[Rfam]
RNA sequence: AUUGAUUGCUAUGAGGAUUUCUAAGCUCCCUCUUCCGAGUAAAGCUGAGGAAAUUUGCUGGCAGAAUCGAACCACUUACAAUCUAGCCAUUACUGAGCAA
Dot-bracket structure: .....((((.......................................................................................))))
Record summary
This 100-nucleotide RNA from Ipomoea nil belongs to the Rfam family "Small nucleolar RNA R30/Z108". The match comes from Rfam's covariance-model search (72 bits). The family's RNA type in Rfam is C/D-box small nucleolar RNA. Clan: SNORD100 clan. For this family Rfam cites "Experimental RNomics. Identification of 140 Candidates for Small Non-Messenger RNAs in the Plant Arabidopsis thaliana" (Marker et al., Curr Biol, 2002). snoR30 is a C/D box small nucleolar RNA which acts as a methylation guide for 18S ribosomal RNA in plants. NCBI's taxonomy places the organism under Eukaryota, Euphyllophyta, Spermatophyta, Pentapetalae, Ipomoea.